RNA sequence: UAUAUGGAGAGUUUGAUCCUGGCUCAGGACGAACGCUGGCGGCGUGCUUAACACAUGCAAGUCGCGCGAUUCUCGAAGUUCGGGGUUGGGAGUUCGAACCUCGAACUUCGAACCUCGAACUUCGAGAAUAGCGGCGGACGGGUGAGUAACACGUGGAUAACCUACCCAUUAGACCAGGAUAACACCGGGAAACUGGUGCUAAUACCGGAUAAGCUCUUUAGAGUAAAAGCCUUAAAGAGGAAAGGGGAAACUCACUAAUGGAUGGGUCCGCGUCCUAUUAGCUAGUUGGUAGGGUAACGGCCUACCAAGGCGACGAUGGGUAGCCGGCCUGAGAGGGUGACCGGCCACACUGGGACUGAGACACGGCCCAGACUCCUACGGGAGGCAGCAGUGGGGAAUAUUCCGCAAUGGGGGAAACCCUGACGGAGCAAUGCCGCGUGAGUGAAGAAGGCCUUUGGGUCGUAAAACUCUGUCUUGAGGGACGAAAAAAAUGACGGUACCUCAAAAGAAAGCCCCGGCUAACUACGUGCCAGCAGCCGCGGUAAAACGUAGGGGGCGAGCGUUGUCCGGAAUUACUG
Numbered sequence: 001u002a003u004a005u006g007g008a009g010a011g012u013u014u015g016a017u018c019c020u021g022g023c024u025c026a027g028g029a030c031g032a033a034c035g036c037u038g039g040c041g042g043c044g045u046g047c048u049u050a051a052c053a054c055a056u057g058c059a060a061g062u063c064g065c066g067c068g069a070u071u072c073u074c075g076a077a078g079u080u081c082g083g084g085g086u087u088g089g090g091a092g093u094u095c096g097a098a099c100c101u102c103g104a105a106c107u108u109c110g111a112a113c114c115u116c117g118a119a120c121u122u123c124g125a126g127a128a129u130a131g132c133g134g135c136g137g138a139c140g141g142g143u144g145a146g147u148a149a150c151a152c153g154u155g156g157a158u159a160a161c162c163u164a165c166c167c168a169u170u171a172g173a174c175c176a177g178g179a180u181a182a183c184a185c186c187g188g189g190a191a192a193c194u195g196g197u198g199c200u201a202a203u204a205c206c207g208g209a210u211a212a213g214c215u216c217u218u219u220a221g222a223g224u225a226a227a228a229g230c231c232u233u234a235a236a237g238a239g240g241a242a243a244g245g246g247g248a249a250a251c252u253c254a255c256u257a258a259u260g261g262a263u264g265g266g267u268c269c270g271c272g273u274c275c276u277a278u279u280a281g282c283u284a285g286u287u288g289g290u291a292g293g294g295u296a297a298c299g300g301c302c303u304a305c306c307a308a309g310g311c312g313a314c315g316a317u318g319g320g321u322a323g324c325c326g327g328c329c330u331g332a333g334a335g336g337g338u339g340a341c342c343g344g345c346c347a348c349a350c351u352g353g354g355a356c357u358g359a360g361a362c363a364c365g366g367c368c369c370a371g372a373c374u375c376c377u378a379c380g381g382g383a384g385g386c387a388g389c390a391g392u393g394g395g396g397a398a399u400a401u402u403c404c405g406c407a408a409u410g411g412g413g414g415a416a417a418c419c420c421u422g423a424c425g426g427a428g429c430a431a432u433g434c435c436g437c438g439u440g441a442g443u444g445a446a447g448a449a450g451g452c453c454u455u456u457g458g459g460u461c462g463u464a465a466a467a468c469u470c471u472g473u474c475u476u477g478a479g480g481g482a483c484g485a486a487a488a489a490a491a492u493g494a495c496g497g498u499a500c501c502u503c504a505a506a507a508g509a510a511a512g513c514c515c516c517g518g519c520u521a522a523c524u525a526c527g528u529g530c531c532a533g534c535a536g537c538c539g540c541g542g543u544a545a546a547a548c549g550u551a552g553g554g555g556g557c558g559a560g561c562g563u564u565g566u567c568c569g570g571a572a573u574u575a576c577u578g
Stems, first nucleotide, its partner, number of pairs: 009025005027568004032564006039437006045430002047395001052393003056390003061135003066132002069129002072126016142348003151273008161265002166261007174208002177205001183198006214239007223230002244253003274320003281311003286308008323345004327338004350371005373384004401427001403426003409422005440470004450461004475505006484495001512557005523552005533540002
Rfam assigns this 578-nucleotide part of an RNA from Peptococcaceae bacterium SCADC1_2_3 to the family "Bacterial small subunit ribosomal RNA". Lineage of the source: Bacteria > Bacillati > Bacillota > Eubacteriales > Peptococcaceae. The family has 99 seed sequences and 42,628 matches in Rfam 15.1.